RNA sequence: GAUAAGCAUCAAGAGGGCUUCAAUGCACACCAACCGAGCUUACGUUAUGCCACGGUGGUAAGAUGAUGUGAGUUAAGUGAGUAUUAACUAAAAUAAUAACGACAU
Number, nucleotide and partner (000 for none) at each position: 001g000002a000003u000004a000005a000006g069007c068008a067009u066010c065011a000012a000013g000014a000015g028016g000017g026018c025019u000020u000021c000022a000023a000024u000025g018026c017027a000028c015029a059030c058031c057032a000033a000034c055035c054036g053037a000038g050039c049040u000041u101042a000043c000044g000045u000046u000047a000048u000049g039050c038051c000052a000053c036054g035055g034056u000057g031058g030059u029060a000061a000062g000063a000064u000065g010066a009067u008068g007069u006070g000071a089072g088073u087074u086075a085076a084077g000078u000079g000080a000081g000082u000083a000084u076085u075086a074087a073088c072089u071090a000091a000092a000093a000094u000095a000096a000097u000098a000099a000100c000101g041102a000103c000104a000105u000

A member of the RNA family "SAM-I/IV (S-adenosyl methionine) riboswitch aptamer" from Prevotella sp. tf2-5, 105 nucleotides long. It scores 52 bits against the family's covariance model. The family has 417 seed sequences and 567 matches in Rfam 15.1. A reference for the family is Weinberg et al. (2008), "The aptamer core of SAM-IV riboswitches mimics the ligand-binding site of SAM-I riboswitches", RNA.